The record is a 90-nucleotide sequence from Trichechus manatus, which matches "Small nucleolar RNA SNORD87" in Rfam. The pairing is the family consensus, mapped onto this sequence. The source organism's lineage runs through Eukaryota, Deuterostomia, Teleostomi, Trichechidae and Trichechus manatus. The family has 10 seed sequences and 539 matches in Rfam 15.1.
[Rfam]
RNA sequence: ACUGGCACAAUGAUGAUUUAAAUUACUUUUUGCCGUUUACCCAUCUGAGGGUUUCUUUGAAGAAAAGUAUCUUAAAACUGAGGUGCUAGU
Numbered sequence: 001a002c003u004g005g006c007a008c009a010a011u012g013a014u015g016a017u018u019u020a021a022a023u024u025a026c027u028u029u030u031u032g033c034c035g036u037u038u039a040c041c042c043a044u045c046u047g048a049g050g051g052u053u054u055c056u057u058u059g060a061a062g063a064a065a066a067g068u069a070u071c072u073u074a075a076a077a078c079u080g081a082g083g084u085g086c087u088a089g090u
Base pairs, nucleotide, nucleotide: 001090002089003088004087005086006085007084